Rfam assigns this 61-nucleotide sequence to the family "RAGATH-18 RNA".
Actinobacteria, Firmicutes, Fusobacteria, Thermotogae (1 example).
By type it is a small RNA.
The sequence is in the family's curated seed alignment.
RNA sequence: CCUUCGGACUGUCGGACAAACUCAAGUAGCUUCGGCAAAAGAGGACAGGUUGAACAAGGAA
Number, nucleotide and partner (000 for none) at each position: 001c059002c058003u057004u056005c000006g000007g000008a000009c048010u047011g046012u045013c044014g000015g000016a000017c000018a000019a000020a000021c043022u042023c041024a000025a000026g000027u000028a000029g036030c035031u000032u000033c000034g000035g030036c029037a000038a000039a000040a000041g023042a022043g021044g013045a012046c011047a010048g009049g000050u000051u000052g000053a000054a000055c000056a004057a003058g002059g001060a000061a000